[Rfam]
Nucleotides: 117
Stems, first nucleotide, its partner, number of pairs: 006018004021060003026055007038046002083104006
Number, partner (000 for none) and nucleotide at each position: 001000a002000c003000c004000g005000u006018c007017c008016u009015u010000a011000u012000c013000u014000u015009g016008g017007g018006g019000u020000u021060g022059c023058g024000c025000g026055g027054c028053c029052g030051c031050u032049c033000g034000a035000u036000g037000a038046a039045c040000g041000c042000g043000u044000g045039g046038u047000g048000a049032g050031a051030g052029c053028g054027g055026c056000a057000c058023u059022g060021c061000u062000g063000a064000c065000a066000g067000c068000u069000c070000g071000g072000c073000a074000a075000c076000a077000c078000a079000a080000c081000c082000a083104g084103c085102g086101c087100c088099c089000g090000c091000u092000g093000c094000c095000u096000g097000c098000g099088g100087g101086g102085c103084g104083c105000a106000a107000u108000u109000u110000u111000u112000g113000g114000a115000a116000c117000c